RNA sequence: AUCCCUCACAGACAUGAUCAGGGACGAGGGCGGGGGACCCACACGUCCUUCGUAGAUAUCCGGCCGGCUCUCGCGGCGCCCCACAGGGCACCGAGCAGUCGACCUAGGGGUGAAGCCUCUCCGCUCCAGCCAGGAGCGCACCGAGGCCGGGCUACCUCUCAGCCCGAAUCCGACAGCUGACCUCGCAGGCGCGUGUGGAGAGGAUUU
Numbered sequence: 001a002u003c004c005c006u007c008a009c010a011g012a013c014a015u016g017a018u019c020a021g022g023g024a025c026g027a028g029g030g031c032g033g034g035g036g037a038c039c040c041a042c043a044c045g046u047c048c049u050u051c052g053u054a055g056a057u058a059u060c061c062g063g064c065c066g067g068c069u070c071u072c073g074c075g076g077c078g079c080c081c082c083a084c085a086g087g088g089c090a091c092c093g094a095g096c097a098g099u100c101g102a103c104c105u106a107g108g109g110g111u112g113a114a115g116c117c118u119c120u121c122c123g124c125u126c127c128a129g130c131c132a133g134g135a136g137c138g139c140a141c142c143g144a145g146g147c148c149g150g151g152c153u154a155c156c157u158c159u160c161a162g163c164c165c166g167a168a169u170c171c172g173a174c175a176g177c178u179g180a181c182c183u184c185g186c187a188g189g190c191g192c193g194u195g196u197g198g199a200g201a202g203g204a205u206u207u
Stems, first nucleotide, its partner, number of pairs: 003029002030186006040107001108171003116146004149165004
The record is a 207-nucleotide sequence from Rhodococcus sp. Leaf258, which matches "c-di-AMP riboswitch aptamer (ydaO/yuaA leader)" in Rfam. Rfam describes the family as follows. This family represents a conserved RNA structure found upstream of the ydaO and yuaA genes in Bacillus subtilis and related genes in other bacteria. A search with the family's covariance model found it, with a score of 56 bits. The pairing is the family consensus, mapped onto this sequence.